[Rfam]
RNA sequence: GGCGAUAAACGGCCGUUGUAAUAAGCCUUUCGGACCCGGGGGCGGUACCCGGCGCCUCCACCCGAACCCGUCCGGCACGAUGCCGGGGCGGGUUCCGGCGGGGGCGAACUAGGAUCGACGAGGGCCUAAAGAGCGUUCUUUCGCCCGGCAUGAUACCGCCGUUAUCGGGUCAAAUUUAUAGUUGCCAACGACAACUAUGCUCCGGUUGCGGUUGCCGCGUGA
Numbered sequence: 001g002g003c004g005a006u007a008a009a010c011g012g013c014c015g016u017u018g019u020a021a022u023a024a025g026c027c028u029u030u031c032g033g034a035c036c037c038g039g040g041g042g043c044g045g046u047a048c049c050c051g052g053c054g055c056c057u058c059c060a061c062c063c064g065a066a067c068c069c070g071u072c073c074g075g076c077a078c079g080a081u082g083c084c085g086g087g088g089c090g091g092g093u094u095c096c097g098g099c100g101g102g103g104g105c106g107a108a109c110u111a112g113g114a115u116c117g118a119c120g121a122g123g124g125c126c127u128a129a130a131g132a133g134c135g136u137u138c139u140u141u142c143g144c145c146c147g148g149c150a151u152g153a154u155a156c157c158g159c160c161g162u163u164a165u166c167g168g169g170u171c172a173a174a175u176u177u178a179u180a181g182u183u184g185c186c187a188a189c190g191a192c193a194a195c196u197a198u199g200c201u202c203c204g205g206u207u208g209c210g211g212u213u214g215c216c217g218c219g220u221g222a
Stems, first nucleotide, its partner, number of pairs: 001145005014135004026124003030121003036052005053106007146161004
RNA: permuted transfer-messenger RNA